[Rfam]
RNA: Selenocysteine insertion sequence 4
Organism: Cetobacterium ceti
RNA sequence: GGAACUUGUACUCGUUGCGGUGCAACAAUGGUAAAAGC
Numbered sequence: 001g002g003a004a005c006u007u008g009u010a011c012u013c014g015u016u017g018c019g020g021u022g023c024a025a026c027a028a029u030g031g032u033a034a035a036a037g038c
Base pairs, nucleotide, nucleotide: 005031006030014026015025016024017023018022